Shown here is a 114-nucleotide sequence from Microbacterium esteraromaticum, a member of the family "ALIL pseudoknot". Lineage of the source: Bacteria > Actinomycetota > Actinomycetes > Micrococcales > Microbacterium. It scores 86 bits against the family's covariance model. The base pairs follow the family's consensus structure, which is taken from published work. Rfam classes the family as a cis-regulatory element.
RNA sequence: GGCUUUCUUCGCGGCGGAGCUCGACCGCCCACACAACAGAUGAUCGAGUACAUCGAUCAGAACAAAGCCGAAUUCGGGGUCGAGCCGAUCUGCGCAGAGCUGCCGAUCGCCCCG
Numbered sequence: 001g002g003c004u005u006u007c008u009u010c011g012c013g014g015c016g017g018a019g020c021u022c023g024a025c026c027g028c029c030c031a032c033a034c035a036a037c038a039g040a041u042g043a044u045c046g047a048g049u050a051c052a053u054c055g056a057u058c059a060g061a062a063c064a065a066a067g068c069c070g071a072a073u074u075c076g077g078g079g080u081c082g083a084g085c086c087g088a089u090c091u092g093c094g095c096a097g098a099g100c101u102g103c104c105g106a107u108c109g110c111c112c113c114g
Stems, first nucleotide, its partner, number of pairs: 013029005075114005086109002089106002092103003